[Rfam]
RNA sequence: GGAGAGAGGCGGGUGGUCGCAGGCGCUGCCUGAGGAAAGUCCGGACUCCACAGGGCAGGACGCUGGGUAAUACCCAGGAGGAGCGAUCCUCGGACAGGGCCAUAGAGACUUCAAACCGCCUUGAAAGGCAAGGGUGGAAAGGUGAGGUAAGAGCUCACCAGCAUCGGGGUGACCCGAUGGCUCGGUAACCCCCGUUCGGAGCAAGGCCAAGCAGGGGUUGGGUGGUCCCGCCCGAUAACCCCGGGUAGGCCGCUUGAGGAGGGUGGUAACACCCUUCCAAGAUAGAUGACCACCUGAGACAGAAUCCGGCUUACGGCCUCUCUCCGAUU
Number, nucleotide and partner (000 for none) at each position: 001g325002g324003a323004g322005a321006g320007a319008g318009g317010c316011g314012g294013g293014u292015g291016g290017u289018c288019g000020c032021a031022g030023g029024c028025g000026c000027u000028g024029c023030c022031u021032g020033a000034g000035g000036a000037a312038a311039g310040u000041c309042c308043g307044g306045a305046c201047u200048c199049c198050a000051c000052a000053g228054g227055g226056c225057a000058g197059g196060a195061c194062g193063c077064u076065g075066g074067g073068u000069a000070a000071u000072a000073c067074c066075c065076a064077g063078g091079a090080g089081g088082a087083g000084c000085g000086a000087u082088c081089c080090u079091c078092g192093g191094a000095c000096a000097g190098g189099g186100c185101c184102a000103u000104a000105g000106a000107g000108a000109c000110u000111u000112c000113a000114a000115a000116c133117c132118g129119c128120c127121u126122u000123g000124a000125a000126a121127g120128g119129c118130a000131a000132g117133g116134g000135u000136g000137g000138a000139a000140a000141g159142g158143u157144g156145a155146g154147g000148u000149a000150a000151g000152a000153g000154c146155u145156c144157a143158c142159c141160a000161g181162c179163a178164u177165c176166g175167g174168g173169g000170u000171g000172a000173c168174c167175c166176g165177a164178u163179g162180g000181c161182u000183c000184g101185g100186u099187a000188a000189c098190c097191c093192c092193c062194g061195u060196u059197c058198g049199g048200a047201g046202c000203a000204a000205g251206g250207c249208c248209a000210a000211g000212c000213a000214g000215g241216g240217g239218u238219u237220g233221g232222g231223u230224g000225g056226u055227c054228c053229c000230g223231c222232c221233c220234g000235a000236u000237a219238a218239c217240c216241c215242c000243g000244g000245g000246u000247a000248g208249g207250c206251c205252g000253c000254u000255u000256g000257a000258g277259g276260a275261g274262g273263g272264u271265g270266g000267u000268a000269a000270c265271a264272c263273c262274c261275u260276u259277c258278c000279a000280a000281g000282a000283u000284a000285g000286a000287u000288g018289a017290c016291c015292a014293c013294c012295u000296g000297a000298g000299a000300c000301a000302g000303a000304a000305u045306c044307c043308g042309g041310c039311u038312u037313a000314c011315g000316g010317c009318c008319u007320c006321u005322c004323u003324c002325c001326g000327a000328u000329u000
Shown here is a 329-nucleotide sequence from Pseudothermotoga lettingae, a member of the family "Bacterial RNase P class A". Its family is annotated with tRNA processing, dimeric ribonuclease P complex and ribonuclease P activity in the Gene Ontology. Pairs were carried over by alignment from the consensus structure, which is taken from published work. The family's RNA type in Rfam is ribozyme.